This 75-nucleotide RNA sequence from Acanthoscelides obtectus belongs to the Rfam family "mir-932 microRNA precursor family". The match comes from Rfam's covariance-model search (81 bits). Pairs were carried over by alignment from the consensus structure, which was predicted with RNAalifold. Lineage of the source: Eukaryota > Eumetazoa > Allotriocarida > Neuropteroidea > Acanthoscelides.
RNA sequence: UGAGUCUUCAAUUCCGUAGUGCAUUGCAGUGUUUAUAGCAGCAGUCUGCAAGCAGUGCGGAAGUGAGGAUCCAAU
Numbered sequence: 001u002g003a004g005u006c007u008u009c010a011a012u013u014c015c016g017u018a019g020u021g022c023a024u025u026g027c028a029g030u031g032u033u034u035a036u037a038g039c040a041g042c043a044g045u046c047u048g049c050a051a052g053c054a055g056u057g058c059g060g061a062a063g064u065g066a067g068g069a070u071c072c073a074a075u
Stems, first nucleotide, its partner, number of pairs: 006068005013061005020054003024051005